The family of this 154-nucleotide RNA from Oscillatoria sp. FACHB-1406 is "c-di-AMP riboswitch aptamer (ydaO/yuaA leader)". The match comes from Rfam's covariance-model search (67 bits). The organism belongs to Oscillatoria, within Bacteria. From the family's description: This family represents a conserved RNA structure found upstream of the ydaO and yuaA genes in Bacillus subtilis and related genes in other bacteria.
Nucleotides: 154
Stems, first nucleotide, its partner, number of pairs: 012138003018046002047134006057064002065119003073095003098113004
Number, partner (000 for none) and nucleotide at each position: 001000a002000u003000a004000u005000c006000g007000a008000g009000u010000c011000a012138g013137c014136c015000u016000a017000a018046u019045c020000g021000a022000a023000g024000c025000u026000u027000c028000c029000c030000c031000g032000a033000a034000u035000u036000g037000g038000g039000a040000a041000g042000u043000a044000a045019g046018a047134g048133c049132g050131g051130a052129g053000g054000a055000a056000c057064c058063a059000u060000u061000u062000u063058u064057g065119g066118g067117g068000c069000g070000u071000a072000u073095u074094u075093c076000a077000g078000a079000c080000u081000u082000c083000u084000u085000c086000g087000g088000g089000a090000g091000u092000c093075g094074a095073a096000a097000g098113g099112g100111a101110c102000a103000u104000c105000u106000c107000u108000c109000a110101g111100u112099c113098c114000u115000a116000g117067c118066c119065c120000g121000u122000c123000a124000g125000c126000u127000a128000a129052c130051u131050c132049c133048g134047c135000a136014g137013g138012c139000a140000u141000u142000g143000a144000g145000u146000g147000a148000a149000g150000a151000c152000u153000g154000a